Rfam assigns this 90-nucleotide RNA from Vitis vinifera to the family "MIR3627 microRNA precursor family".
RNA sequence: GGGGGUUUCUUGUCGCAGGAGAGACGGCACUUGCUCUUGUGUAGCAAAUUGCAAGCGGCAAUCGCCGCUCUCCUGUGACAAGAUACCCUU
Numbered sequence: 001g002g003g004g005g006u007u008u009c010u011u012g013u014c015g016c017a018g019g020a021g022a023g024a025c026g027g028c029a030c031u032u033g034c035u036c037u038u039g040u041g042u043a044g045c046a047a048a049u050u051g052c053a054a055g056c057g058g059c060a061a062u063c064g065c066c067g068c069u070c071u072c073c074u075g076u077g078a079c080a081a082g083a084u085a086c087c088c089u090u
Base pairs, nucleotide, nucleotide: 002089003088004087006085008083010081011080013078014077015076016075017074018073019072020071021070022069023068025067026066027065028064031061032060033059034058035057037055